c-di-AMP riboswitch aptamer (ydaO/yuaA leader): a 127-nucleotide RNA sequence from Bacillus sp. FJAT-27986. A search with the family's covariance model found it, with a score of 75 bits. Pairs were carried over by alignment from the consensus structure. The source organism's lineage runs through Bacteria, Bacillati, Bacillota, Caryophanales and Bacillus. The family has 106 seed sequences and 7,607 matches in Rfam 15.1.
RNA sequence: AUUUCUAAAUCGCUUAAGCAUAAUUGCGCGGGGGACCCAUUGUGUUCUGGGGUGAAUCCAUUAUGGUAGGGCUACUCAGUAGGCACGAAUCCGACAGCUAACUCCUCAGCGUUUUAUGAGAAGGAAG
Numbered sequence: 001a002u003u004u005c006u007a008a009a010u011c012g013c014u015u016a017a018g019c020a021u022a023a024u025u026g027c028g029c030g031g032g033g034g035a036c037c038c039a040u041u042g043u044g045u046u047c048u049g050g051g052g053u054g055a056a057u058c059c060a061u062u063a064u065g066g067u068a069g070g071g072c073u074a075c076u077c078a079g080u081a082g083g084c085a086c087g088a089a090u091c092c093g094a095c096a097g098c099u100a101a102c103u104c105c106u107c108a109g110c111g112u113u114u115u116a117u118g119a120g121a122a123g124g125a126a127g
Stems, first nucleotide, its partner, number of pairs: 011111004018027003028107001030105004038049002050092003058066003069086001071084002